[Rfam]
RNA sequence: GUGGUUGCUGUGAUGAGGCUGUAUAUGUGGACUAGAGUUUCUGAUCUCUGGGUUUUUCUCAAAACCAGGAUUUGAAGACCACCCCUUGGCUGUCUGAGCUCAU
Numbered sequence: 001g002u003g004g005u006u007g008c009u010g011u012g013a014u015g016a017g018g019c020u021g022u023a024u025a026u027g028u029g030g031a032c033u034a035g036a037g038u039u040u041c042u043g044a045u046c047u048c049u050g051g052g053u054u055u056u057u058c059u060c061a062a063a064a065c066c067a068g069g070a071u072u073u074g075a076a077g078a079c080c081a082c083c084c085c086u087u088g089g090c091u092g093u094c095u096g097a098g099c100u101c102a103u
Stems, first nucleotide, its partner, number of pairs: 001103004007099002038077004045070002048068004
The family of this 103-nucleotide RNA from Ananas comosus is "Small nucleolar RNA Z157/R69/R10". By type it is a C/D-box small nucleolar RNA. The family's consensus secondary structure was predicted with PFOLD. Its Rfam clan is "SNORD52 clan". For this family Rfam cites "The high diversity of snoRNAs in plants: identification and comparative study of 120 snoRNA genes from Oryza sativa" (Chen et al., Nucleic Acids Res, 2003). Taxonomically the source falls in Ananas (Eukaryota, Streptophytina, Tracheophyta, Petrosaviidae).